[Rfam]
RNA sequence: CUUUCCUAAUACAACGAAAGCCCUACCUCUCUUUCGUCCUUACGGCUCCUAAGCCGUUCCAGUGUGAAUCAGGUUCUAAAAAGUAUU
Numbered sequence: 001c002u003u004u005c006c007u008a009a010u011a012c013a014a015c016g017a018a019a020g021c022c023c024u025a026c027c028u029c030u031c032u033u034u035c036g037u038c039c040u041u042a043c044g045g046c047u048c049c050u051a052a053g054c055c056g057u058u059c060c061a062g063u064g065u066g067a068a069u070c071a072g073g074u075u076c077u078a079a080a081a082a083g084u085a086u087u
Base pairs, nucleotide, nucleotide: 034067035066036065039062040061042057043056044055045054046053047052

This 87-nucleotide sequence from Bacillus sp. DNRA2 belongs to the Rfam family "BsrC". The match comes from Rfam's covariance-model search (86 bits). Pairs were carried over by alignment from the consensus structure, which was predicted with CMfinder. The organism belongs to Bacillus, within Bacteria.